transfer-messenger RNA: a 372-nucleotide RNA from Aquariibacter albus.
By type it is a non-coding RNA gene.
Lineage of the source: Bacteria > Pseudomonadati > Pseudomonadota > Betaproteobacteria > Aquariibacter.
Bacterial tmRNA, also known as 10Sa RNA or SsrA, is named for its dual tRNA and mRNA-like properties.
It scores 172 bits against the family's covariance model.
For this family Rfam cites "tmRDB (tmRNA database)" (Zwieb et al., Nucleic Acids Res, 2003).
Rfam links the family to the GO term RNA catabolic process.
[Rfam]
RNA sequence: GGGCCCGACCUGGCUUCGACGUGGGUGCGGACUUGGAGCGGGGCAUGCCGAGCAUCAGUGAGCUCGUAAAUCCAGCUGAAACAAACCAACUGCGAACGACGAACGUUUCGCCCUCGCCGCUUAAACACCGGUGAGCGUCUCAACGGCAGGCCGAUGGGCCGGGUCCGAUCCGCAAGGUGAAGGCUGAGACGUCAUGCACAUCGGCUGGUCGACCGUCGGGUUACUUGGCGUUCGGCGAGAUCUAGGUGACUGGCGCUGACCGUAGCGUGCUCCUGCGCGACGGCAGCGUGAGAUCCAAAUCAGGCGGCUAAGCAUGUAGAUCUGCCCGGGAAUGGCUUGCGGACGGGGGUUCGAUCCCCCCCGGGUCCACCA
Dot-bracket structure: (((((((............(((((((.....(((((.(((((.((((((((((.[[[[[..)))))........]]]]].................................(((((((.........)))))))[[[[[[..[[[[..(((((((.]]]]........................]]]]]].......)))))))..[[[[[.[[[..((((((...]]].]]]]].........)))))).(((((..(((..(((.[[[...[)))..))).)))))..........].....]]]...)))))....))))))))))....)))))))...(((((.......))))))))))))....